Shown here is a 168-nucleotide sequence from Rhododendron williamsianum, a member of the family "small nucleolar RNA snoR137".
RNA sequence: GUUGCUUCUUACUGGUGAACUCCUUCUCUGUUUUUUUUUGACAAAACAGUUAGUGAGGGAUGUUCAUGUUUCCGAAGCAUAGACGUAUUGUUUUGCCAGCAUUAAACAGCUCGGUGCAUAACACUAAUGUGUUCUGUUGCAUCGUGCUACCUGUCUUCUGGUAAAUUU
Numbered sequence: 001g002u003u004g005c006u007u008c009u010u011a012c013u014g015g016u017g018a019a020c021u022c023c024u025u026c027u028c029u030g031u032u033u034u035u036u037u038u039u040g041a042c043a044a045a046a047c048a049g050u051u052a053g054u055g056a057g058g059g060a061u062g063u064u065c066a067u068g069u070u071u072c073c074g075a076a077g078c079a080u081a082g083a084c085g086u087a088u089u090g091u092u093u094u095g096c097c098a099g100c101a102u103u104a105a106a107c108a109g110c111u112c113g114g115u116g117c118a119u120a121a122c123a124c125u126a127a128u129g130u131g132u133u134c135u136g137u138u139g140c141a142u143c144g145u146g147c148u149a150c151c152u153g154u155c156u157u158c159u160g161g162u163a164a165a166u167u168u
Stems, first nucleotide, its partner, number of pairs: 003079006016066005021060005095162005101156001108148003112144007

On this family, see Chen and Wu, Nucleic Acids Res 2009: "Mining small RNA sequencing data: a new approach to identify small nucleolar RNAs in Arabidopsis".